[Rfam]
mir-320 microRNA precursor family: a 76-nucleotide RNA from Saimiri boliviensis. Rfam 15.1 lists 659 matches to the family in 129 species. On this family, see Berezikov et al., Genome Res 2006: "Many novel mammalian microRNA candidates identified by extensive cloning and RAKE analysis".
RNA sequence: AAAAGGAUCGGCCUUCUCUUCCCGGUUCUUCCCGGAGUCGGGAAAAGCUGGGUUGAGAGGGUGAAAAUAAAAAAUA
Numbered sequence: 001a002a003a004a005g006g007a008u009c010g011g012c013c014u015u016c017u018c019u020u021c022c023c024g025g026u027u028c029u030u031c032c033c034g035g036a037g038u039c040g041g042g043a044a045a046a047g048c049u050g051g052g053u054u055g056a057g058a059g060g061g062u063g064a065a066a067a068u069a070a071a072a073a074a075u076a
Stems, first nucleotide, its partner, number of pairs: 014059005021052005029044006